Description:
This 92-nucleotide sequence from Nyctereutes procyonoides belongs to the Rfam family "mir-8799 microRNA precursor family". Clan: mir-8791 microRNA precursor clan. Gene Ontology terms of the family: RISC complex and miRNA-mediated post-transcriptional gene silencing. The family's consensus secondary structure was predicted with RNAalifold. The source organism's lineage runs through Eukaryota, Mammalia, Carnivora, Caniformia and Nyctereutes. The match comes from Rfam's covariance-model search (46 bits).
RNA sequence: AGGGGAAUCACUGGAUCCUGGGCUGUGUCCCCCAGUGCUCUGGCUCUGGGUUCUGUGCCGCUGGAAUCAUGCUCCCGUCCGUGCAGCCCCCU
Numbered sequence: 001a002g003g004g005g006a007a008u009c010a011c012u013g014g015a016u017c018c019u020g021g022g023c024u025g026u027g028u029c030c031c032c033c034a035g036u037g038c039u040c041u042g043g044c045u046c047u048g049g050g051u052u053c054u055g056u057g058c059c060g061c062u063g064g065a066a067u068c069a070u071g072c073u074c075c076c077g078u079c080c081g082u083g084c085a086g087c088c089c090c091c092u
Stems, first nucleotide, its partner, number of pairs: 001092005011083001012081003018077001020075003024071004028065002032063001033060001035058004042053002045050001
Dot-bracket structure: (((((.....((((...(.(((.((((((..((.((((...((.(....).)).)))).)..)))..)))).))).).))).)....)))))